[Rfam]
RNA: Lysine riboswitch aptamer
Organism: Lysinibacillus halotolerans
RNA sequence: GAACAUGAUAGAGGUGCAAGGUUCAAUAGUAACCAUCUGGAGGAUGAACAAUUCCUAGGAAAGGUGGUGAAAGGGAGACUUGCCGAAGCGAUAAAUCCAUUGUUCAGAUUUAUUUGCUGGUUUUGCAUUUAAGAAGUGUAAGACUGUCAGAAUCAGUCAGAGUGAUUCUGGAGGGCUAUCUCAUAA
Numbered sequence: 001g002a003a004c005a006u007g008a009u010a011g012a013g014g015u016g017c018a019a020g021g022u023u024c025a026a027u028a029g030u031a032a033c034c035a036u037c038u039g040g041a042g043g044a045u046g047a048a049c050a051a052u053u054c055c056u057a058g059g060a061a062a063g064g065u066g067g068u069g070a071a072a073g074g075g076a077g078a079c080u081u082g083c084c085g086a087a088g089c090g091a092u093a094a095a096u097c098c099a100u101u102g103u104u105c106a107g108a109u110u111u112a113u114u115u116g117c118u119g120g121u122u123u124u125g126c127a128u129u130u131a132a133g134a135a136g137u138g139u140a141a142g143a144c145u146g147u148c149a150g151a152a153u154c155a156g157u158c159a160g161a162g163u164g165a166u167u168c169u170g171g172a173g174g175g176c177u178a179u180c181u182c183a184u185a186a
Base pairs, nucleotide, nucleotide: 007180008179009178010177011176016083017082018081019080020079022077023076024075032068033067034066035065036064037063038062087118088117089116090115091114092112093111094110095109096108097107119145120144121143122142123141124140125139126138127137128136129135147171148170149169150168151167152166153165154164155163